This 50-nucleotide RNA sequence from Stephania japonica belongs to the Rfam family "Plastid-ccsA-ndhD-2 3UTR RNA". Pairs were carried over by alignment from the consensus structure, which was predicted with LocARNA. The family has 421 seed sequences and 875 matches in Rfam 15.1. From the family's description: Plastid ccsA-ndhD-2 is a non-coding RNA (ncRNA) recognised in plastids. It was found in the three prime untranslated region (3UTR) of ccsA and ndhD genes, its 3UTR location suggests a role in transcript maturation. For this family Rfam cites "Retrograde signaling in plants: A critical review focusing on the GUN pathway and beyond" (Richter et al., Plant Commun, 2023). Rfam classes the family as a cis-regulatory element.
RNA sequence: UUUUUGAGAAUCAUUUGAAUCAAGUCCAAGUAGCGAUUCAAAUGAUUCUC
Dot-bracket structure: .....((((((((((((((((.............))))))))))))))))